[Rfam]
RNA sequence: GCUGGACAUGGUGCCUGUAAUCCAAGUGCCAGGGAGGCUGAAACUGGUGGAUGGCUUGAACUGGGGGGGUUCUGGGCUGCAGCGAGCUGUGCUGAGCAGGUGUCCGUGCUAAGUUCAGCAUUGACAUGGUGGUCCUGGGGGAGCUGGGGGCCACCAGGUUGCCUAUGGAGGGGUGAACUGGCCCAGGUCACAGAUGGAGCAGGUCAAAACUCCUGUGCUGAUCAGAAGUGGGAUGGUGCAUGUGAACAGUCCCUGUAGCACAGCCUGGGUGGGAGAGCAGGACCCGGUUUCCU
Numbered sequence: 001g002c003u004g005g006a007c008a009u010g011g012u013g014c015c016u017g018u019a020a021u022c023c024a025a026g027u028g029c030c031a032g033g034g035a036g037g038c039u040g041a042a043a044c045u046g047g048u049g050g051a052u053g054g055c056u057u058g059a060a061c062u063g064g065g066g067g068g069g070u071u072c073u074g075g076g077c078u079g080c081a082g083c084g085a086g087c088u089g090u091g092c093u094g095a096g097c098a099g100g101u102g103u104c105c106g107u108g109c110u111a112a113g114u115u116c117a118g119c120a121u122u123g124a125c126a127u128g129g130u131g132g133u134c135c136u137g138g139g140g141g142a143g144c145u146g147g148g149g150g151c152c153a154c155c156a157g158g159u160u161g162c163c164u165a166u167g168g169a170g171g172g173g174u175g176a177a178c179u180g181g182c183c184c185a186g187g188u189c190a191c192a193g194a195u196g197g198a199g200c201a202g203g204u205c206a207a208a209a210c211u212c213c214u215g216u217g218c219u220g221a222u223c224a225g226a227a228g229u230g231g232g233a234u235g236g237u238g239c240a241u242g243u244g245a246a247c248a249g250u251c252c253c254u255g256u257a258g259c260a261c262a263g264c265c266u267g268g269g270u271g272g273g274a275g276a277g278c279a280g281g282a283c284c285c286g287g288u289u290u291c292c293u
Base pairs, nucleotide, nucleotide: 001038002037003036004016005015007013008012021035022034023033040291041290042289043288044287045286046285047284052280054278055277056276057275060270061269062268064266065265066264072263073262074261076259077258078257079256080255081254082253084251086250087249088248089247090246092244096243097242098241100239101238102237103236104232105231107230108229109228110227113223115221116220117219118218119217120216121215122161123160124159125158127156128155129154130153131152132151133150134149135148136147138145139144162168163167169214170213171212172211173210174209179206180205181204182203183202188197189196190195

A member of the RNA family "Metazoan signal recognition particle RNA" from Antrostomus carolinensis, 293 nucleotides long. Rfam's curators write: The signal recognition particle (SRP) is a universally conserved ribonucleoprotein. Rfam 15.1 lists 383,523 matches to the family in 1,221 species.